[Rfam]
RNA sequence: CUCUGGUAACUAGAGAUCCCUCAGAUUAAAUUAUAGUCAAGGAAAAUCUCUAGCAGUGGCGCCCGAACAGGGACCUGAAGUGAAAGUAACCGGAG
Numbered sequence: 001c002u003c004u005g006g007u008a009a010c011u012a013g014a015g016a017u018c019c020c021u022c023a024g025a026u027u028a029a030a031u032u033a034u035a036g037u038c039a040a041g042g043a044a045a046a047u048c049u050c051u052a053g054c055a056g057u058g059g060c061g062c063c064c065g066a067a068c069a070g071g072g073a074c075c076u077g078a079a080g081u082g083a084a085a086g087u088a089a090c091c092g093g094a095g
Stems, first nucleotide, its partner, number of pairs: 001095007010053008018042002022036001025034001055087001057085001060082002062072003074080001
Overview
A member of the RNA family "HIV primer binding site (PBS)" from Lentivirus simimdef, 95 nucleotides long. The family's consensus secondary structure was predicted with PFOLD. For this family Rfam cites "RNA interactions in the 5' region of the HIV-1 genome" (Damgaard et al., J Mol Biol, 2004). From the family's description: This family consists of several, structured HIV primer binding sites (PBSs). tRNA(3)(Lys) binds to the PBS to initiate reverse transcription. The organism belongs to Lentivirus simimdef, within Viruses. A search with the family's covariance model found it, with a score of 74 bits. It is annotated as a cis-regulatory element.